[Rfam]
The family of this 90-nucleotide RNA from Capsicum baccatum is "Small nucleolar RNA snoR109". A search with the family's covariance model found it, with a score of 79 bits. The family has 6 seed sequences and 680 matches in Rfam 15.1. Gene Ontology terms of the family: nucleolus and RNA processing. Lineage of the source: Eukaryota > Viridiplantae > Streptophytina > lamiids > Capsicum. Pairs were carried over by alignment from the consensus structure, which was predicted with WAR.
RNA sequence: AGGCUGUAGCUAUAGGAACAUAAUUGAGAAGUUUACUGGCCGGUUGUCGUAAAUCUGUUGACAUAUCUGCUUACCGAACUUCUUACAUUU
Numbered sequence: 001a002g003g004c005u006g007u008a009g010c011u012a013u014a015g016g017a018a019c020a021u022a023a024u025u026g027a028g029a030a031g032u033u034u035a036c037u038g039g040c041c042g043g044u045u046g047u048c049g050u051a052a053a054u055c056u057g058u059u060g061a062c063a064u065a066u067c068u069g070c071u072u073a074c075c076g077a078a079c080u081u082c083u084u085a086c087a088u089u090u
Stems, first nucleotide, its partner, number of pairs: 026084008038071003042067003046062004